[Rfam]
RNA sequence: GACGGGGCGAGAGAGCCGAAUAUAACACCCUUUGGGGAAAUAAGCUCCGCCGACUAGGAUCGGUAGUUGAACCCUGUCACCCACUA
Numbered sequence: 001g002a003c004g005g006g007g008c009g010a011g012a013g014a015g016c017c018g019a020a021u022a023u024a025a026c027a028c029c030c031u032u033u034g035g036g037g038a039a040a041u042a043a044g045c046u047c048c049g050c051c052g053a054c055u056a057g058g059a060u061c062g063g064u065a066g067u068u069g070a071a072c073c074c075u076g077u078c079a080c081c082c083a084c085u086a
Stems, first nucleotide, its partner, number of pairs: 001078007013047004019041001028037003049064005
Dot-bracket structure: (((((((.....((((..(........(((....)))...)..)))).(((((......))))).......)))))))........
Notes: A member of the RNA family "sRNA-Xcc1" from Gallibacterium salpingitidis, 86 nucleotides long. Taxonomically the source falls in Gallibacterium (Bacteria, Pseudomonadati, Pseudomonadota, Pasteurellaceae). It is annotated as a small RNA.